[Rfam]
RNA sequence: UGGAUCAAUGGUGACUUCCCACAGUGUAUGAGUCGUGUACGGUAAAUAUGUGUCUGAAACCCUGAGGCUUGU
Numbered sequence: 001u002g003g004a005u006c007a008a009u010g011g012u013g014a015c016u017u018c019c020c021a022c023a024g025u026g027u028a029u030g031a032g033u034c035g036u037g038u039a040c041g042g043u044a045a046a047u048a049u050g051u052g053u054c055u056g057a058a059a060c061c062c063u064g065a066g067g068c069u070u071g072u
Stems, first nucleotide, its partner, number of pairs: 002070002005067002
RNA: Small nucleolar RNA SNORD113/SNORD114 family
Organism: Moschus moschiferus